[Rfam]
RNA sequence: UAGCUCUGGUUCCUCUGCAUUCCGCGAAUAUCUUUCGCCUUUUACUAAAGAUAUCCGUGCAGAGGGGCGCUUAUGAGUAUUCUUCAAUUUUUCGGUGCCCGCAAUUAUGCGGGU
Numbered sequence: 001u002a003g004c005u006c007u008g009g010u011u012c013c014u015c016u017g018c019a020u021u022c023c024g025c026g027a028a029u030a031u032c033u034u035u036c037g038c039c040u041u042u043u044a045c046u047a048a049a050g051a052u053a054u055c056c057g058u059g060c061a062g063a064g065g066g067g068c069g070c071u072u073a074u075g076a077g078u079a080u081u082c083u084u085c086a087a088u089u090u091u092u093c094g095g096u097g098c099c100c101g102c103a104a105u106u107a108u109g110c111g112g113g114u
Stems, first nucleotide, its partner, number of pairs: 003078004009068011028054008097114006

This 114-nucleotide sequence from Romanomermis culicivorax belongs to the Rfam family "U5 spliceosomal RNA". The family's RNA type in Rfam is spliceosomal small nuclear RNA. Taxonomically the source falls in Romanomermis (Eukaryota, Opisthokonta, Metazoa, Bilateria). From the family's description: U5 RNA is a component of both types of known spliceosome. The precise function of this molecule is unknown, though it is known that the 5' loop is required for splice site selection and p220 binding, and that both the 3' stem-loop and the Sm site are important for Sm protein binding and cap methylation. A search with the family's covariance model found it, with a score of 89 bits. The base pairs follow the family's consensus structure, which is taken from published work.